[Rfam]
RNA: SAM riboswitch aptamer (S box leader)
RNA sequence: UCUUCAUCCAGAGCAGUAGAGGGACUGGCCCAAUGAUACUGCAGCAACCCCUGUCAAAAGGUAGGUGCUGAUUCCAGCGGAAUAUUCCGACAGAUGAACG
Numbered sequence: 001u002c003u004u005c006a007u008c009c010a011g012a013g014c015a016g017u018a019g020a021g022g023g024a025c026u027g028g029c030c031c032a033a034u035g036a037u038a039c040u041g042c043a044g045c046a047a048c049c050c051c052u053g054u055c056a057a058a059a060g061g062u063a064g065g066u067g068c069u070g071a072u073u074c075c076a077g078c079g080g081a082a083u084a085u086u087c088c089g090a091c092a093g094a095u096g097a098a099c100g
Stems, first nucleotide, its partner, number of pairs: 001100001003098006013042005021031003025077004043069004048065002050061003073092001078089004